[Rfam]
Nucleotides: 117
Stems, first nucleotide, its partner, number of pairs: 003053002007049001010046003026041004068110004075103004084094001
Number, partner (000 for none) and nucleotide at each position: 001000c002000a003053g004052u005000c006000a007049u008000u009000a010046c011045c012044a013000a014000g015000g016000c017000u018000u019000u020000g021000a022000g023000a024000a025000c026041g027040c028039a029038g030000u031000u032000u033000c034000u035000c036000a037000u038029u039028u040027g041026c042000u043000g044012u045011g046010g047000a048000c049007a050000c051000a052004a053003c054000c055000a056000u057000a058000a059000a060000a061000a062000c063000a064000a065000c066000u067000u068110c069109c070108c071107a072000c073000u074000a075103g076102g077101u078100u079000u080000u081000c082000u083000c084094c085000u086000c087000c088000u089000u090000g091000c092000u093000a094084g095000c096000a097000c098000u099000c100078a101077g102076c103075c104000u105000a106000u107071u108070g109069g110068g111000a112000a113000c114000a115000u116000u117000u
The record is a 117-nucleotide RNA from Mustela putorius, which matches "Small nucleolar RNA SNORA32" in Rfam.
Rfam's curators write: ACA32 is a member of the H/ACA class of snoRNA that guide the sites of modification of uridines to pseudouridines.
Rfam links the family to the GO terms nucleolus and RNA processing.